Rfam assigns this 126-nucleotide RNA from Tenebrionibacter intestinalis to the family "Histidine operon leader".
[Rfam]
RNA sequence: UCACCACCACCAUCAUCCUGACUAGUCUUUCAGGCGAUGUGUGCUGGAAGACGUUCAGAAUCUUCCAGCGGUGAGUAACGCUUCAUAAAAAGCCCCCGGAAGAUUGUCUUCCGGGGGCUUUUUUUA
Numbered sequence: 001u002c003a004c005c006a007c008c009a010c011c012a013u014c015a016u017c018c019u020g021a022c023u024a025g026u027c028u029u030u031c032a033g034g035c036g037a038u039g040u041g042u043g044c045u046g047g048a049a050g051a052c053g054u055u056c057a058g059a060a061u062c063u064u065c066c067a068g069c070g071g072u073g074a075g076u077a078a079c080g081c082u083u084c085a086u087a088a089a090a091a092g093c094c095c096c097c098g099g100a101a102g103a104u105u106g107u108c109u110u111c112c113g114g115g116g117g118c119u120u121u122u123u124u125u126a
Stems, first nucleotide, its partner, number of pairs: 008043003011039004017034005044068008087123016
At least 6 amino acid operons are known to be regulated by attenuation. In each a leader sequence of 150-200 bp is found upstream of the first gene in the operon. This leader sequence can assume two different secondary structures known as the terminator and the anti-terminator structure. In each case the leader also codes for very short peptide sequence that is rich in the end product amino acid of the operon. The terminator structure is recognised as a termination signal for RNA polymerase and the operon is not transcribed. This structure forms when the cell has an excess of the regulatory amino acid and ribosome movement over the leader transcript is not impeded. When there is a deficiency of the charged tRNA of the regulatory amino acid the ribosome translating the leader peptide stalls and the antiterminator structure can form. This allows RNA polymerase to transcribe the operon. In the Rfam alignment the consensus structure is of the terminator structure. A reference for the family is Kolter and Yanofsky (1982), "Attenuation in amino acid biosynthetic operons", Annu Rev Genet.